[Rfam]
Rfam assigns this 69-nucleotide RNA from Olea europaea to the family "Plastid-clpP 5UTR RNA". Pairs were carried over by alignment from the consensus structure, which was predicted with LocARNA. The source organism's lineage runs through Eukaryota, Magnoliopsida, Gunneridae, Olea and Olea europaea. Rfam classes the family as a cis-regulatory element. Plastid clpP is a non-coding RNA (ncRNA) recognised in plastids. It was found in the prime untranslated region (5UTR) of a protease complex subunit (clpP) in plastids, suggesting a posible cis-regulatory function. A search with the family's covariance model found it, with a score of 75 bits.

RNA sequence: AAUUCCAUUCAUAGGAACAAAGAGAAGCAGAUUUAUUUAAUACCUAAUAAGUACCAUUACGCAAUGGGG
Numbered sequence: 001a002a003u004u005c006c007a008u009u010c011a012u013a014g015g016a017a018c019a020a021a022g023a024g025a026a027g028c029a030g031a032u033u034u035a036u037u038u039a040a041u042a043c044c045u046a047a048u049a050a051g052u053a054c055c056a057u058u059a060c061g062c063a064a065u066g067g068g069g
Stems, first nucleotide, its partner, number of pairs: 003022002008017003043068003051060003